[Rfam]
RNA sequence: UAUGUUAAGAAGAAACAGCCGUUUCUCACCUUACAGCAAAGCUAGUGAGGUUACUACAGUUUUUGUUAGAAUUGUAUUUUCAGGACGGCUUAAGCCGUCCUUUUUUAUAUGU
Numbered sequence: 001u002a003u004g005u006u007a008a009g010a011a012g013a014a015a016c017a018g019c020c021g022u023u024u025c026u027c028a029c030c031u032u033a034c035a036g037c038a039a040a041g042c043u044a045g046u047g048a049g050g051u052u053a054c055u056a057c058a059g060u061u062u063u064u065g066u067u068a069g070a071a072u073u074g075u076a077u078u079u080u081c082a083g084g085a086c087g088g089c090u091u092a093a094g095c096c097g098u099c100c101u102u103u104u105u106u107a108u109a110u111g112u
Base pairs, nucleotide, nucleotide: 011026012025013024014023015022016021028051029050030049033046034045036042037041084099085098086097087096088095089094

The family of this 112-nucleotide RNA from Clostridium carboxidivorans is "Ribosomal protein L20 leader". Rfam describes the family as follows. This family is a putative r-protein leader autoregulatory structure found in B. subtilis and other low-GC Gram-positive bacteria. It is located in the 5' untranslated regions of mRNAs encoding initiation factor 3 followed by ribosomal proteins L35 and L20 (infC-rpmI-rplT). A Rho-independent transcription terminator structure that is probably involved in regulation is included at the 3' end. A search with the family's covariance model found it, with a score of 70 bits. Lineage of the source: Bacteria > Bacillati > Bacillota > Clostridium > Clostridium carboxidivorans. On this family, see Zengel and Lindahl, Prog Nucleic Acid Res Mol Biol 1994: "Diverse mechanisms for regulating ribosomal protein synthesis in Escherichia coli".